[Rfam]
Shown here is a 96-nucleotide RNA sequence from Gossypium australe, a member of the family "Plastid-rps12 3UTR RNA". Rfam classes the family as a cis-regulatory element. The match comes from Rfam's covariance-model search (89 bits). On this family, see Richter et al., Plant Commun 2023: "Retrograde signaling in plants: A critical review focusing on the GUN pathway and beyond". From the family's description: Plastid rpl20 is a non-coding RNA (ncRNA) recognised in plastids. It was found in the three prime untranslated region (3UTR) of rps12 gene, its 3UTR location sugest a role in transcript maduration. NCBI's taxonomy places the organism under Eukaryota, Euphyllophyta, Gunneridae, rosids, Gossypium.
RNA sequence: GGUUUCCAUUGGCGCAAAUCCAACCUUGGAAUUUAAGAUGAGAAAAAAAUCUCUAUUGGUAGCAAAUGUUUAUCCAUUAAGUUGGGAAAAUCCUAU
Numbered sequence: 001g002g003u004u005u006c007c008a009u010u011g012g013c014g015c016a017a018a019u020c021c022a023a024c025c026u027u028g029g030a031a032u033u034u035a036a037g038a039u040g041a042g043a044a045a046a047a048a049a050u051c052u053c054u055a056u057u058g059g060u061a062g063c064a065a066a067u068g069u070u071u072a073u074c075c076a077u078u079a080a081g082u083u084g085g086g087a088a089a090a091u092c093c094u095a096u
Base pairs, nucleotide, nucleotide: 009023010022011021012020051086052085053084055077056076058074059073060072061071062070